[Rfam]
About this RNA
Rfam assigns this 198-nucleotide RNA from Commensalibacter melissae to the family "permuted transfer-messenger RNA". Lineage of the source: Bacteria > Pseudomonadota > Alphaproteobacteria > Acetobacteraceae > Commensalibacter. Rfam links the family to the GO term RNA catabolic process. The family's consensus secondary structure is taken from published work.
RNA sequence: GGCAAUAAACGGUAUAUGAAAUAGGCGUAGUGGACCCGGGGGCGGUACCCGGCGUCUCCACCAUAAAGCUUAUGGGGACGAAACAGGAUCGACACGCGUAGUAAAGAUAUAUUUUUUGCUCGGUAUUGUACCACCGUUAUCGGACUGUUUUUUACAAAUGCCAACGAUAAUUUCGAGGCACACGCUAUCGCGGCCUAA
Dot-bracket structure: (((((........((((........(((.(((...(((((.......)))))(((((((..............)))))))............))))))........)))).....)))))((((........))))..............................................................